[Rfam]
The record is a 115-nucleotide RNA from Haloplasma contractile, which matches "FMN riboswitch aptamer (RFN element)" in Rfam. Rfam links the family to the GO term FMN binding. Taxonomically the source falls in Haloplasma contractile (Bacteria, Bacillati, Mycoplasmatota, Haloplasmataceae). The match comes from Rfam's covariance-model search (114 bits).

RNA sequence: AUAAAUCUUCAGGGCAGGGUGCAAUUCCCGACCGGCGGUGAUAGUCCGCGAACCGAAAGGUUGAUCUGGUGAAAUUCCAAAACCGACAGUAGAGUCUGGAUGGUAGAAGAUGAAA
Numbered sequence: 001a002u003a004a005a006u007c008u009u010c011a012g013g014g015c016a017g018g019g020u021g022c023a024a025u026u027c028c029c030g031a032c033c034g035g036c037g038g039u040g041a042u043a044g045u046c047c048g049c050g051a052a053c054c055g056a057a058a059g060g061u062u063g064a065u066c067u068g069g070u071g072a073a074a075u076u077c078c079a080a081a082a083c084c085g086a087c088a089g090u091a092g093a094g095u096c097u098g099g100a101u102g103g104u105a106g107a108a109g110a111u112g113a114a115a
Base pairs, nucleotide, nucleotide: 005111006110007109008108009107010106017029018028019027031095032094033085034084035049036048037047038046044083045082052061053060054059065081067079068078069077087098088097089096